[Rfam]
RNA sequence: UCAGACUCAACGGGGUGCAGUCACGAGCUGCUGAGAGACACCCGUAGAACCUGAUCCGGUUAAUACCGGCGGAGGGAUUUGAGCGAACCUUUCUC
Numbered sequence: 001u002c003a004g005a006c007u008c009a010a011c012g013g014g015g016u017g018c019a020g021u022c023a024c025g026a027g028c029u030g031c032u033g034a035g036a037g038a039c040a041c042c043c044g045u046a047g048a049a050c051c052u053g054a055u056c057c058g059g060u061u062a063a064u065a066c067c068g069g070c071g072g073a074g075g076g077a078u079u080u081g082a083g084c085g086a087a088c089c090u091u092u093c094u095c
Stems, first nucleotide, its partner, number of pairs: 006083005011044004016038001017031005050075003056069004

A member of the RNA family "TPP riboswitch aptamer (THI element)" from bacteria symbiont BFo2 of Frankliniella occidentalis, 95 nucleotides long. It scores 78 bits against the family's covariance model. Taxonomically the source falls in Enterobacterales (Bacteria, Pseudomonadati, Pseudomonadota, Gammaproteobacteria).